[Rfam]
This 431-nucleotide part of an RNA from Plasmodium falciparum belongs to the Rfam family "Eukaryotic large subunit ribosomal RNA".
The base pairs follow the family's consensus structure, which is taken from published work.
The family has 88 seed sequences and 107,465 matches in Rfam 15.1.

RNA sequence: UGAUUUGAUGUUAGGAGGGCAAAUCCGCCGAAUUUAAGCAUAUAAUUAAGCGGAAGAAAAGAAAAUAACUAUGAUUCCUUUAGUAACGGCGAGUGAACAAGGACCAGCUCAAACGGUUAAUCCUUCGUUUGGUGCAAACCUUUCGACGGAAUUGUCGUUGAAUUAUUCCAUGAAUGCCUUUAAUUUGAGCAAAGUGAGCAGGAAUGCUUCCCCAUAGAGGGUGAAAGGCCCAUAGUUCGUUUUAAUUUAUUCAUUGGAAUUUUUCAUGCCGAGUCGUGUUCUUUGAGAUUGGAGCACUAAUACGUGUGAUACAUUUCACAUAAAGCUAAAUAUGUGUAGGAGACCGAUAGCAAACAAGUACCGUGAGGGAAAGAUGAAAUAGUACUCAGGAAUGAGCAAUUAAAUAGUACCUGAAAUCGUUAAGAUGGAAC
Number, nucleotide and partner (000 for none) at each position: 001u000002g000003a000004u000005u000006u000007g000008a000009u000010g000011u000012u000013a000014g000015g000016a000017g000018g000019g000020c000021a000022a000023a000024u055025c053026c052027g051028c050029c000030g000031a000032a000033u000034u000035u042036a041037a000038g000039c000040a000041u036042a035043u000044a000045a000046u000047u000048a000049a000050g028051c027052g026053g025054a000055a024056g000057a000058a000059a000060a000061g000062a000063a000064a000065a072066u071067a000068a000069c000070u000071a066072u065073g000074a000075u000076u103077c102078c101079u100080u099081u000082a000083g000084u000085a000086a094087c093088g000089g000090c000091g000092a000093g087094u086095g000096a000097a000098c000099a080100a079101g078102g077103a076104c000105c000106a327107g326108c325109u324110c000111a000112a159113a158114c157115g156116g155117u154118u000119a152120a000121u150122c149123c148124u000125u146126c145127g144128u000129u000130u000131g000132g000133u000134g000135c000136a000137a000138a000139c000140c000141u000142u000143u000144c127145g126146a125147c000148g123149g122150a121151a000152u119153u000154g117155u116156c115157g114158u113159u112160g264161a263162a262163u000164u000165a260166u259167u258168c257169c000170a000171u000172g000173a000174a000175u000176g000177c000178c000179u000180u000181u000182a000183a000184u245185u244186u000187g242188a241189g240190c239191a000192a000193a000194g210195u000196g209197a208198g207199c206200a000201g000202g000203a000204a000205u000206g199207c198208u197209u196210c194211c000212c000213c217214a000215u000216a000217g213218a000219g000220g230221g229222u000223g000224a000225a000226a000227g000228g000229c221230c220231c000232a000233u000234a000235g000236u000237u000238c000239g190240u189241u188242u187243u000244a185245a184246u000247u000248u000249a000250u000251u000252c000253a000254u000255u000256g000257g168258a167259a166260u165261u000262u162263u161264u160265c000266a000267u000268g000269c000270c000271g000272a000273g000274u000275c000276g297277u296278g295279u294280u293281c292282u291283u000284u000285g000286a000287g000288a000289u000290u000291g282292g281293a280294g279295c278296a277297c276298u000299a000300a000301u000302a000303c000304g321305u320306g319307u318308g317309a000310u000311a000312c000313a000314u000315u000316u000317c308318a307319c306320a305321u304322a000323a000324a109325g108326c107327u106328a000329a000330a000331u000332a000333u000334g000335u000336g000337u000338a000339g000340g000341a000342g000343a000344c000345c000346g000347a000348u000349a000350g000351c000352a000353a000354a000355c000356a000357a000358g000359u000360a000361c368362c367363g000364u000365g000366a000367g362368g361369g000370a000371a000372a000373g000374a000375u000376g000377a000378a000379a000380u000381a000382g000383u000384a000385c396386u395387c394388a393389g000390g000391a000392a000393u388394g387395a386396g385397c000398a000399a000400u000401u000402a000403a000404a000405u000406a000407g000408u000409a000410c000411c000412u000413g000414a000415a000416a000417u000418c000419g000420u000421u000422a000423a000424g000425a000426u000427g000428g000429a000430a000431c000